[Rfam]
RNA sequence: GGGCUCGUAGCUUAGCCAGGUAGAGCGACGGGCUCUUAACCACAACGGGAGGUACCCGUAGGUCCCGGGUUCGAAUCCCGGCGAGCCCG
Numbered sequence: 001g002g003g004c005u006c007g008u009a010g011c012u013u014a015g016c017c018a019g020g021u022a023g024a025g026c027g028a029c030g031g032g033c034u035c036u037u038a039a040c041c042a043c044a045a046c047g048g049g050a051g052g053u054a055c056c057c058g059u060a061g062g063u064c065c066c067g068g069g070u071u072c073g074a075a076u077c078c079c080g081g082c083g084a085g086c087c088c089g
Stems, first nucleotide, its partner, number of pairs: 001088007010026004028059005065081005
RNA: tRNA